[Rfam]
RNA sequence: CUUUGUAGCAGUAAGGCUAUAAGGCGGAAGGAG
Numbered sequence: 001c002u003u004u005g006u007a008g009c010a011g012u013a014a015g016g017c018u019a020u021a022a023g024g025c026g027g028a029a030g031g032a033g
Stems, first nucleotide, its partner, number of pairs: 001024008